[Rfam]
RNA sequence: UGGCUGCAAUCAACAUUCAUUGCUGUCGGUGGGUUUUCAUUGCUAUCAACUCACUGAUCAAUGAAUGCAAACUGCGGACCA
Numbered sequence: 001u002g003g004c005u006g007c008a009a010u011c012a013a014c015a016u017u018c019a020u021u022g023c024u025g026u027c028g029g030u031g032g033g034u035u036u037u038c039a040u041u042g043c044u045a046u047c048a049a050c051u052c053a054c055u056g057a058u059c060a061a062u063g064a065a066u067g068c069a070a071a072c073u074g075c076g077g078a079c080c081a
Stems, first nucleotide, its partner, number of pairs: 001081003004077005014067009025058007033050003